[Rfam]
RNA sequence: AAUCAUCUGAUGAGAAAUAUCUGCAAAUACAUGAUAGAUUUUCCCAAUCUCUAUGAUUAUUUUGGUAUUUAAGUCUCUGAUGAUU
Numbered sequence: 001a002a003u004c005a006u007c008u009g010a011u012g013a014g015a016a017a018u019a020u021c022u023g024c025a026a027a028u029a030c031a032u033g034a035u036a037g038a039u040u041u042u043c044c045c046a047a048u049c050u051c052u053a054u055g056a057u058u059a060u061u062u063u064g065g066u067a068u069u070u071a072a073g074u075c076u077c078u079g080a081u082g083a084u085u
Stems, first nucleotide, its partner, number of pairs: 001084001003083003036050005

A member of the RNA family "Small nucleolar RNA Z199" from Spinacia oleracea, 85 nucleotides long. The family's consensus secondary structure was predicted with PFOLD. On this family, see Chen et al., Nucleic Acids Res 2003: "The high diversity of snoRNAs in plants: identification and comparative study of 120 snoRNA genes from Oryza sativa". A search with the family's covariance model found it, with a score of 58 bits. snoZ199 is a C/D box small nucleolar RNA, which acts as a methylation guide RNA for sites on 18S and 25S rRNA. Rice snoZ199 is reported to be homologous to Arabidopsis snoR13. Taxonomically the source falls in Spinacia (Eukaryota, Streptophyta, Embryophyta, Spermatophyta).